[Rfam]
Nucleotides: 097
Base pairs, nucleotide, nucleotide: 001031002030003029004028005027006026007025009023010022011021071094072093073092074091075090076089077088078087079086
Number, partner (000 for none) and nucleotide at each position: 001031g002030u003029u004028a005027c006026a007025a008000g009023a010022a011021g012000a013000c014000c015000u016000c017000c018000u019000a020000a021011c022010u023009u024000g025007u026006u027005g028004u029003a030002a031001c032000a033000a034000a035000u036000a037000u038000c039000c040000u041000a042000a043000a044000c045000u046000u047000u048000u049000c050000u051000u052000u053000u054000u055000c056000a057000u058000a059000a060000u061000a062000a063000u064000c065000u066000c067000c068000c069000u070000u071094a072093a073092c074091u075090c076089c077088a078087c079086c080000c081000a082000a083000u084000c085000a086079g087078g088077u089076g090075g091074a092073g093072u094071u095000u096000u097000u